Background
Rfam assigns this 161-nucleotide RNA to the family "RT-16 RNA". The family's RNA type in Rfam is small RNA. Rfam's curators put it in the seed alignment. The family's consensus secondary structure is taken from published work.
[Rfam]
RNA sequence: UUUUAUUUUUCUUUGGACAGGAAAGAUAAACUAAAAGGACUACACGUCAAUUGAUAGUGCUUUCAUAAGAAGCCAUAAAAUUCAACAGCGAUAAUUGGUAACUGAAAUAUUGUGAAUAUUAAAGCUGUGGUGAUUUACUUUUAAUUAAUUGGCUACAUGGC
Numbered sequence: 001u002u003u004u005a006u007u008u009u010u011c012u013u014u015g016g017a018c019a020g021g022a023a024a025g026a027u028a029a030a031c032u033a034a035a036a037g038g039a040c041u042a043c044a045c046g047u048c049a050a051u052u053g054a055u056a057g058u059g060c061u062u063u064c065a066u067a068a069g070a071a072g073c074c075a076u077a078a079a080a081u082u083c084a085a086c087a088g089c090g091a092u093a094a095u096u097g098g099u100a101a102c103u104g105a106a107a108u109a110u111u112g113u114g115a116a117u118a119u120u121a122a123a124g125c126u127g128u129g130g131u132g133a134u135u136u137a138c139u140u141u142u143a144a145u146u147a148a149u150u151g152g153c154u155a156c157a158u159g160g161c
Stems, first nucleotide, its partner, number of pairs: 002030012046153010056134001058132001085128005092121004101113002